[Rfam]
RNA sequence: AACGCCCCGAAAUUCAUGUAUCAACUUGGCGGAAGAGAAUGAAUAUCAGGGCGUAGGUAAAAAACCUAGAAAGGAUAUUAGCACAUGAGACGUGCAACACAACAGCCCGCCAUAAGC
Numbered sequence: 001a002a003c004g005c006c007c008c009g010a011a012a013u014u015c016a017u018g019u020a021u022c023a024a025c026u027u028g029g030c031g032g033a034a035g036a037g038a039a040u041g042a043a044u045a046u047c048a049g050g051g052c053g054u055a056g057g058u059a060a061a062a063a064a065c066c067u068a069g070a071a072a073g074g075a076u077a078u079u080a081g082c083a084c085a086u087g088a089g090a091c092g093u094g095c096a097a098c099a100c101a102a103c104a105g106c107c108c109g110c111c112a113u114a115a116g117c
Stems, first nucleotide, its partner, number of pairs: 002054006009047002013043005019037001021036002027112006

Background
Rfam assigns this 117-nucleotide RNA sequence from bacteria symbiont BFo2 of Frankliniella occidentalis to the family "Pseudoknot of the regulatory region of the repBA gene". Rfam classes the family as a cis-regulatory element. Gene Ontology term of the family: translation. The literature on the family includes a 1999 paper in J Bacteriol by Athanasopoulos et al., "Analysis of elements involved in pseudoknot-dependent expression and regulation of the repA gene of an IncL/M plasmid".